[Rfam]
RNA sequence: AGUUGCAAGUUUGAAACUAUAGCAGAAGUGCUCAGGGUGUGGCCUGUCAGAUUCCAAUGAAUCUGUGAAUUCUGGG
Numbered sequence: 001a002g003u004u005g006c007a008a009g010u011u012u013g014a015a016a017c018u019a020u021a022g023c024a025g026a027a028g029u030g031c032u033c034a035g036g037g038u039g040u041g042g043c044c045u046g047u048c049a050g051a052u053u054c055c056a057a058u059g060a061a062u063c064u065g066u067g068a069a070u071u072c073u074g075g076g
Base pairs, nucleotide, nucleotide: 013044017042018041023074024073025072026071027070028040029039030038048065049064050063051062052061053060054059